[Rfam]
RNA: transfer-messenger RNA
Organism: Marinibactrum halimedae
RNA sequence: GGGGGCGAUUAGGAUUCGACGCCGGUGACAAAACCUUAAGUGCAUGUGGUGAUGGCAGCCAAUCACCUUAAUCCAAAGCUGCAUCUGAAUAGUCGCAAACGACGAUUCUUACGCUUUAGCCGCUUAAGGCUAACGGUCGAUAACAAGGUGCCUGUACCGCGUUUUCGCCCGUCAUACAGAACAGGAUCGCAGCAAAAUCUGCCUGGGGUGGAGCUGUUAAACUCUUAUCAGGAUCGCUCUUUUCGCCCUGCCCGUUGGGCCGCUAAGAGUUAAAUCAAUAAACGGAUCUAAACAUGUAGAUCUUAAGGCGGAGCGCUGACGGACGCGGGUUCAAAUCCCGCCGCCUCCACCA
Numbered sequence: 001g002g003g004g005g006c007g008a009u010u011a012g013g014a015u016u017c018g019a020c021g022c023c024g025g026u027g028a029c030a031a032a033a034c035c036u037u038a039a040g041u042g043c044a045u046g047u048g049g050u051g052a053u054g055g056c057a058g059c060c061a062a063u064c065a066c067c068u069u070a071a072u073c074c075a076a077a078g079c080u081g082c083a084u085c086u087g088a089a090u091a092g093u094c095g096c097a098a099a100c101g102a103c104g105a106u107u108c109u110u111a112c113g114c115u116u117u118a119g120c121c122g123c124u125u126a127a128g129g130c131u132a133a134c135g136g137u138c139g140a141u142a143a144c145a146a147g148g149u150g151c152c153u154g155u156a157c158c159g160c161g162u163u164u165u166c167g168c169c170c171g172u173c174a175u176a177c178a179g180a181a182c183a184g185g186a187u188c189g190c191a192g193c194a195a196a197a198u199c200u201g202c203c204u205g206g207g208g209u210g211g212a213g214c215u216g217u218u219a220a221a222c223u224c225u226u227a228u229c230a231g232g233a234u235c236g237c238u239c240u241u242u243u244c245g246c247c248c249u250g251c252c253c254g255u256u257g258g259g260c261c262g263c264u265a266a267g268a269g270u271u272a273a274a275u276c277a278a279u280a281a282a283c284g285g286a287u288c289u290a291a292a293c294a295u296g297u298a299g300a301u302c303u304u305a306a307g308g309c310g311g312a313g314c315g316c317u318g319a320c321g322g323a324c325g326c327g328g329g330u331u332c333a334a335a336u337c338c339c340g341c342c343g344c345c346u347c348c349a350c351c352a
Base pairs, nucleotide, nucleotide: 001348002347003346004345005344006343007342020321021320023318024317025316026315027314034308035307036306037305038304039303040302043296044295045294046293047292048067049066050065051064052063055082056081057080058079059078117133119130120129121128134171135170136169138167139166142163143162144161147158148157149156151185152184153183154182155181190216191215192214193213202232203231204230205229236270237269238268239267240266241265244262245261246259247258248257250288253285254283255282256281325341326340327339328338329337